[Rfam]
Record summary: Shown here is a 94-nucleotide sequence from Halothermothrix orenii, a member of the family "c-di-GMP-I riboswitch aptamer". NCBI's taxonomy places the organism under Bacteria, Clostridia, Halanaerobiales, Halothermotrichaceae, Halothermothrix orenii. It is one of the family's seed sequences.
RNA sequence: CUCCGGAAAUGGUAAACCCAUCGAAAGGUGGGGACACAAAGUCACGGGCCUGUAGCCGGUUAUUUUUAACCGGUAUGGCAGCCGGACUGCCGAA
Numbered sequence: 001c002u003c004c005g006g007a008a009a010u011g012g013u014a015a016a017c018c019c020a021u022c023g024a025a026a027g028g029u030g031g032g033g034a035c036a037c038a039a040a041g042u043c044a045c046g047g048g049c050c051u052g053u054a055g056c057c058g059g060u061u062a063u064u065u066u067u068a069a070c071c072g073g074u075a076u077g078g079c080a081g082c083c084g085g086a087c088u089g090c091c092g093a094a
Base pairs, nucleotide, nucleotide: 012037013036017032018031019030020029021028022027040088041087042086043085045084046083047082048079049078050077056073057072058071059070060069061068062067